[Rfam]
RNA sequence: UGACCCUGUGCGGGAGAGACCCGGCAACGGCCGGUGUCCGCGACGCGGCGCCGGGCGGCCGACCGGGCGCCGAAGGAGCAACCUCCCCGGAAUCUCUCAGGCAUCCGUACCGCGCAGGCGAG
Numbered sequence: 001u002g003a004c005c006c007u008g009u010g011c012g013g014g015a016g017a018g019a020c021c022c023g024g025c026a027a028c029g030g031c032c033g034g035u036g037u038c039c040g041c042g043a044c045g046c047g048g049c050g051c052c053g054g055g056c057g058g059c060c061g062a063c064c065g066g067g068c069g070c071c072g073a074a075g076g077a078g079c080a081a082c083c084u085c086c087c088c089g090g091a092a093u094c095u096c097u098c099a100g101g102c103a104u105c106c107g108u109a110c111c112g113c114g115c116a117g118g119c120g121a122g
Stems, first nucleotide, its partner, number of pairs: 006117008020067004069102003072098002076096003082090002
RNA: Glycine riboswitch aptamer
Organism: Sphaerisporangium melleum